[Rfam]
RNA: Small nucleolar RNA SNORD91 family
Organism: Rhinopomastus cyanomelas
RNA sequence: GCGGGAAGCCGGUGAUGUCUUAGCCGUGGUGUCUGAACCUGGCUGAAGGUCUCUUCUGAAGACUGUCCUAGGUUCUGAGGCUUCCAGGGAA
Numbered sequence: 001g002c003g004g005g006a007a008g009c010c011g012g013u014g015a016u017g018u019c020u021u022a023g024c025c026g027u028g029g030u031g032u033c034u035g036a037a038c039c040u041g042g043c044u045g046a047a048g049g050u051c052u053c054u055u056c057u058g059a060a061g062a063c064u065g066u067c068c069u070a071g072g073u074u075c076u077g078a079g080g081c082u083u084c085c086a087g088g089g090a091a
Stems, first nucleotide, its partner, number of pairs: 004085007